[Rfam]
RNA sequence: GCAGAGAGCAAUAUCCCGAUAGGAUCCUGCAAAAGGAGAAGCCUUGUAACCAAAAAAAUGGGGGAAUUACAUAUG
Numbered sequence: 001g002c003a004g005a006g007a008g009c010a011a012u013a014u015c016c017c018g019a020u021a022g023g024a025u026c027c028u029g030c031a032a033a034a035g036g037a038g039a040a041g042c043c044u045u046g047u048a049a050c051c052a053a054a055a056a057a058a059u060g061g062g063g064g065a066a067u068u069a070c071a072u073a074u075g
Base pairs, nucleotide, nucleotide: 014065015064016063017062021044022043023042025037026036027035028034050061051060
RNA: SAM-III riboswitch aptamer (SMK box)
Organism: Jeotgalibaca porci